[Rfam]
Rfam assigns this 133-nucleotide RNA sequence from Sutterella wadsworthensis to the family "SAM-I/IV (S-adenosyl methionine) riboswitch aptamer". Its family is annotated with regulation of gene expression and S-adenosylmethionine metabolic process in the Gene Ontology. The family has 417 seed sequences and 567 matches in Rfam 15.1.
RNA sequence: CGACAGCAUGAAGAGAUGAGGACUUUCCUAAAAGCCCUCACGCCAACCUGCCCGCCUCCGGGCAAGGUGGUGGCCUCCGCGGGAGGCCAUGUGGCCGGUAGCUCAUCGCGCACCGACAAACAUACGGAGAAUG
Numbered sequence: 001c002g003a004c005a006g007c008a009u010g011a012a013g014a015g016a017u018g019a020g021g022a023c024u025u026u027c028c029u030a031a032a033a034g035c036c037c038u039c040a041c042g043c044c045a046a047c048c049u050g051c052c053c054g055c056c057u058c059c060g061g062g063c064a065a066g067g068u069g070g071u072g073g074c075c076u077c078c079g080c081g082g083g084a085g086g087c088c089a090u091g092u093g094g095c096c097g098g099u100a101g102c103u104c105a106u107c108g109c110g111c112a113c114c115g116a117c118a119a120a121c122a123u124a125c126g127g128a129g130a131a132u133g
Stems, first nucleotide, its partner, number of pairs: 006092005015041001017040005042071003047067003050063003056127002094117001096115004
NCBI's taxonomy places the organism under Bacteria, Pseudomonadati, Pseudomonadota, Sutterellaceae, Sutterella wadsworthensis. A reference for the family is Weinberg et al. (2008), "The aptamer core of SAM-IV riboswitches mimics the ligand-binding site of SAM-I riboswitches", RNA.